Iron response element I: a 35-nucleotide RNA from Pipistrellus kuhlii. The family has 62 seed sequences and 6,829 matches in Rfam 15.1. A reference for the family is Zhang et al. (2001), "Repression of Manduca sexta ferritin synthesis by IRP1/IRE interaction", Insect Mol Biol. Gene Ontology term of the family: response to iron ion. Lineage of the source: Eukaryota > Eumetazoa > Mammalia > Theria > Pipistrellus. By type it is a cis-regulatory element.
RNA sequence: CUGUCUCUUGCUUCAACAACAUUUGGACAGAACAG
Dot-bracket structure: ((((.(((.(.(((((......)))))))))))))